[Rfam]
RNA: Cyanobacterial functional RNA 1
Organism: Lusitaniella coriacea
RNA sequence: GCGGAGACAAACGAAACGUUUCCGUUCACUCCUCACACCACAACUCGCCCGAACAGCGUUCGGGCGUU
Number, nucleotide and partner (000 for none) at each position: 001g025002c024003g023004g022005a021006g020007a019008c018009a000010a000011a000012c000013g000014a000015a000016a000017c000018g008019u007020u006021u005022c004023c003024g002025u001026u000027c000028a000029c000030u000031c000032c000033u000034c000035a000036c000037a000038c000039c000040a000041c000042a000043a000044c000045u000046c066047g065048c064049c063050c062051g061052a060053a000054c000055a000056g000057c000058g000059u000060u052061c051062g050063g049064g048065c047066g046067u000068u000